[Rfam]
RNA sequence: AUUACCAGUUUGCUGUUCAUUGCGCAGCGUGUUUUAAAUAUUUCUGUUCUUGUAAAAAAGCUAAAACACGCUGCGCAAUGAACAGCAAACUGGUAAU
Number, nucleotide and partner (000 for none) at each position: 001a000002u000003u000004a094005c093006c092007a091008g090009u089010u088011u087012g086013c085014u084015g083016u000017u081018c080019a079020u078021u000022g000023c075024g074025c000026a000027g000028c070029g069030u068031g067032u066033u065034u064035u063036a062037a000038a000039u000040a000041u000042u000043u000044c000045u000046g000047u000048u000049c000050u000051u000052g000053u000054a000055a000056a000057a000058a000059a000060g000061c000062u036063a035064a034065a033066a032067c031068a030069c029070g028071c000072u000073g000074c024075g023076c000077a000078a020079u019080g018081a017082a000083c015084a014085g013086c012087a011088a010089a009090c008091u007092g006093g005094u004095a000096a000097u000

Rfam assigns this 97-nucleotide sequence from Operophtera brumata to the family "mir-980 microRNA precursor family".
Taxonomically the source falls in Operophtera (Eukaryota, Bilateria, Endopterygota, Amphiesmenoptera).
Its family is annotated with RISC complex and miRNA-mediated post-transcriptional gene silencing in the Gene Ontology.
The match comes from Rfam's covariance-model search (47 bits).